[Rfam]
Shown here is a 189-nucleotide RNA sequence from Salvia splendens, a member of the family "small nucleolar RNA snoR143". Rfam classes the family as an H/ACA-box small nucleolar RNA. Its family is annotated with RNA processing and nucleolus in the Gene Ontology. A search with the family's covariance model found it, with a score of 75 bits. Pairs were carried over by alignment from the consensus structure, which was predicted with RNAalifold. The literature on the family includes a 2009 paper in Nucleic Acids Res by Chen and Wu, "Mining small RNA sequencing data: a new approach to identify small nucleolar RNAs in Arabidopsis". The family has 3 seed sequences and 660 matches in Rfam 15.1.
RNA sequence: UCGUACUACGGUCGAGAGGCUGUGCCAAUAUGGUUAAAAACAAUAAAUGAAUGGAGUAGAGUCUCUGAGCAGUUGUGCGGAAAUAAAUGCCGAGAUAAGCUCGGCGGCGGCCAGACAACCGUUGAGAUGGAUCCAUAUAUCAGCGCCGCUGUUUCUAUGGUGCUUGUCUACUAAAUCCAUAUCAAAGUC
Numbered sequence: 001u002c003g004u005a006c007u008a009c010g011g012u013c014g015a016g017a018g019g020c021u022g023u024g025c026c027a028a029u030a031u032g033g034u035u036a037a038a039a040a041c042a043a044u045a046a047a048u049g050a051a052u053g054g055a056g057u058a059g060a061g062u063c064u065c066u067g068a069g070c071a072g073u074u075g076u077g078c079g080g081a082a083a084u085a086a087a088u089g090c091c092g093a094g095a096u097a098a099g100c101u102c103g104g105c106g107g108c109g110g111c112c113a114g115a116c117a118a119c120c121g122u123u124g125a126g127a128u129g130g131a132u133c134c135a136u137a138u139a140u141c142a143g144c145g146c147c148g149c150u151g152u153u154u155c156u157a158u159g160g161u162g163c164u165u166g167u168c169u170a171c172u173a174a175a176u177c178c179a180u181a182u183c184a185a186a187g188u189c
Stems, first nucleotide, its partner, number of pairs: 002079005010070001013067001014065004020059004025054003124183002127180005141166003147162003